[Rfam]
RNA sequence: AGUGUUUUUCAGGGCGGGGUGCAAUUCCCCACUGGCGGUAAAGUCCGCGAGCCAGAUUGGAGCGAUGAUGGAAUCUUGUGAUUCCUUUGGAACUCAGAUCAGGCACGAUCCGGUGUGAUUCCGGGACCAACAGUACAGUCUGGAUGGAAGAGAAAUGUU
Number, nucleotide and partner (000 for none) at each position: 001a000002g000003u157004g156005u155006u154007u153008u152009u151010c150011a000012g000013g000014g000015c000016g000017g029018g028019g027020u000021g000022c000023a000024a000025u000026u000027c019028c018029c017030c000031a139032c138033u129034g128035g048036c047037g046038g045039u000040a000041a000042a000043g127044u126045c038046c037047g036048c035049g000050a000051g000052c000053c103054a000055g000056a000057u000058u000059g000060g000061a000062g000063c000064g000065a000066u000067g000068a000069u000070g000071g000072a000073a000074u000075c000076u000077u000078g000079u000080g000081a000082u000083u000084c000085c000086u000087u000088u000089g000090g000091a000092a000093c000094u000095c000096a000097g000098a000099u000100c000101a000102g000103g053104c000105a000106c000107g000108a000109u125110c124111c123112g122113g121114u000115g000116u000117g000118a000119u000120u000121c113122c112123g111124g110125g109126a044127c043128c034129a033130a000131c142132a141133g140134u000135a000136c000137a000138g032139u031140c133141u132142g131143g000144a000145u000146g000147g000148a000149a000150g010151a009152g008153a007154a006155a005156u004157g003158u000159u000